[Rfam]
RNA: LOOT RNA
RNA sequence: UGCCUAAGUUCUCAUAGAAUAUGGCAUAAAAACCUUUCACAGACAUUAAGCUCCUCGUCAGAGCAUCUGUGAAGGGUCAUAUCUCGAAAGGGGUAUGGGUAGCGAAAGCUAUC
Numbered sequence: 001u002g003c004c005u006a007a008g009u010u011c012u013c014a015u016a017g018a019a020u021a022u023g024g025c026a027u028a029a030a031a032a033c034c035u036u037u038c039a040c041a042g043a044c045a046u047u048a049a050g051c052u053c054c055u056c057g058u059c060a061g062a063g064c065a066u067c068u069g070u071g072a073a074g075g076g077u078c079a080u081a082u083c084u085c086g087a088a089a090g091g092g093g094u095a096u097g098g099g100u101a102g103c104g105a106a107a108g109c110u111a112u113c
Base pairs, nucleotide, nucleotide: 001026002025003024004023009019010018011017033076034075035074036073037072038071039070040069041068042067043066050064051063052062053061078097079096080095081094082093083092084091085090098113099112100111101110102109103108